A member of the RNA family "Small nucleolar RNA snoR111" from Juglans regia, 112 nucleotides long. Lineage of the source: Eukaryota > eudicotyledons > Pentapetalae > rosids > Juglans. Its family is annotated with RNA processing and nucleolus in the Gene Ontology. The family has 6 seed sequences and 533 matches in Rfam 15.1. The family's consensus secondary structure was predicted with WAR. It scores 70 bits against the family's covariance model.
[Rfam]
RNA sequence: ACGUUUGUUGGGAGAAUUCAGAGAGUUUUUCUUCCAUCAAAAAUCAAUGGCCGAGAUAUCGUUUGGGUUGUCAUCUUUUUUCAUUGGCGAUUCGAUUGUUGCUCGUCCACAU
Numbered sequence: 001a002c003g004u005u006u007g008u009u010g011g012g013a014g015a016a017u018u019c020a021g022a023g024a025g026u027u028u029u030u031c032u033u034c035c036a037u038c039a040a041a042a043a044u045c046a047a048u049g050g051c052c053g054a055g056a057u058a059u060c061g062u063u064u065g066g067g068u069u070g071u072c073a074u075c076u077u078u079u080u081u082c083a084u085u086g087g088c089g090a091u092u093c094g095a096u097u098g099u100u101g102c103u104c105g106u107c108c109a110c111a112u
Stems, first nucleotide, its partner, number of pairs: 006039002009036003012031005049108002052105004058096004067091007